Rfam assigns this 62-nucleotide sequence from Methylobacterium sp. 4-46 to the family "Fluoride riboswitch aptamer (crcB RNA motif)". Rfam's curators put it in the seed alignment. Taxonomically the source falls in Methylobacterium (Bacteria, Alphaproteobacteria, Hyphomicrobiales, Methylobacteriaceae).

RNA sequence: UGGCGGUCUGGGGGUGGAGUUCCCCAUAACCGCCCACCCGGGCCGAUGACUCCUACCGCGUG
Numbered sequence: 001u002g003g004c005g006g007u008c009u010g011g012g013g014g015u016g017g018a019g020u021u022c023c024c025c026a027u028a029a030c031c032g033c034c035c036a037c038c039c040g041g042g043c044c045g046a047u048g049a050c051u052c053c054u055a056c057c058g059c060g061u062g
Stems, first nucleotide, its partner, number of pairs: 010025004016053006032043004